Rfam assigns this 81-nucleotide RNA from Danio rerio to the family "mir-26 microRNA precursor family". A reference for the family is Lagos-Quintana et al. (2002), "Identification of tissue-specific microRNAs from mouse", Curr Biol. It is one of the family's seed sequences. The source organism's lineage runs through Eukaryota, Actinopteri, Teleostei, Clupeocephala and Danio. Rfam links the family to the GO terms RISC complex and miRNA-mediated post-transcriptional gene silencing.
RNA sequence: CUGCAACCUGGUUCAAGUAAUCCAGGAUAGGCUUUGUGGACUAGGGUUGGCCUGUUCUUGGUUACUUGCACUGGGUUGCAG
Numbered sequence: 001c002u003g004c005a006a007c008c009u010g011g012u013u014c015a016a017g018u019a020a021u022c023c024a025g026g027a028u029a030g031g032c033u034u035u036g037u038g039g040a041c042u043a044g045g046g047u048u049g050g051c052c053u054g055u056u057c058u059u060g061g062u063u064a065c066u067u068g069c070a071c072u073g074g075g076u077u078g079c080a081g
Stems, first nucleotide, its partner, number of pairs: 002080004007075006014068009024058010
Dot-bracket structure: .((((.((((((.(((((((((.((((((((((...............)))))))))).))))))))).)))))).)))).